[Rfam]
RNA sequence: GUGCCCUUUCAGAGCUGACAGAGUGCUCUGAGAGGCUAACACAGAAAGGGAAAGUAAGUCUCCAUAAAACCCAGAGAAGAGAUGGUCGUUUCUUCUUUGGAUCCUGUCUGGAGUCACAAAU
Number, nucleotide and partner (000 for none) at each position: 001g000002u051003g000004c049005c048006c000007u046008u045009u044010c000011a000012g000013a000014g040015c000016u038017g037018a000019c035020a000021g000022a000023g000024u000025g000026c000027u000028c000029u000030g000031a000032g000033a000034g000035g019036c000037u017038a016039a000040c014041a000042c000043a000044g009045a008046a007047a000048g005049g004050g000051a002052a000053a000054g000055u000056a000057a000058g115059u000060c113061u112062c111063c110064a109065u000066a000067a000068a000069a000070c000071c100072c099073a098074g097075a096076g095077a094078a000079g092080a091081g090082a089083u088084g000085g000086u000087c000088g083089u082090u081091u080092c079093u000094u077095c076096u075097u074098u073099g072100g071101a000102u000103c000104c000105u000106g000107u000108c000109u064110g063111g062112a061113g060114u000115c058116a000117c000118a000119a000120a000121u000
RNA: Small nucleolar RNA SNORA26